[Rfam]
Rfam assigns this 76-nucleotide RNA from Geomesophilobacter sediminis to the family "c-di-GMP-I riboswitch aptamer". It scores 46 bits against the family's covariance model. About the family: GEMM was predicted in a large-scale screen for bacterial structured RNA regulatory elements. Genes associated with GEMM are involved in a diverse array of functions, including chemotaxis regulation, signal transduction, secretion and chitin.

RNA sequence: UAACGACAAUACUAAACCACUCGCGAGGGUGGGGCGGAAAGCCAUAGGAUCUCUCUGAGACAGCCGGGUUGCCGAA
Numbered sequence: 001u002a003a004c005g006a007c008a009a010u011a012c013u014a015a016a017c018c019a020c021u022c023g024c025g026a027g028g029g030u031g032g033g034g035c036g037g038a039a040a041g042c043c044a045u046a047g048g049a050u051c052u053c054u055c056u057g058a059g060a061c062a063g064c065c066g067g068g069u070u071g072c073c074g075a076a
Stems, first nucleotide, its partner, number of pairs: 012037002017032006040070004047065002050060004